[Rfam]
The family of this 75-nucleotide RNA sequence from Crocodylus porosus is "Mammalian CPEB3 ribozyme". A search with the family's covariance model found it, with a score of 48 bits. Pairs were carried over by alignment from the consensus structure, which is taken from published work.
RNA sequence: AUUGCAAGUGCAAGGCCAUAGCAGAAGUGCCUAUGGCACAGCCUGUCAGAUUCCAACAAAUCUGCAAAUUCUGCU
Number, nucleotide and partner (000 for none) at each position: 001a000002u000003u000004g000005c000006a000007a000008g000009u000010g000011c000012a000013a000014g043015g042016c041017c000018a000019u000020a075021g074022c073023a072024g071025a070026a069027g039028u038029g037030c000031c000032u000033a000034u000035g000036g000037c029038a028039c027040a000041g016042c015043c014044u000045g000046u000047c064048a063049g062050a061051u060052u059053c000054c000055a000056a000057c000058a000059a052060a051061u050062c049063u048064g047065c000066a000067a000068a000069u026070u025071c024072u023073g022074c021075u020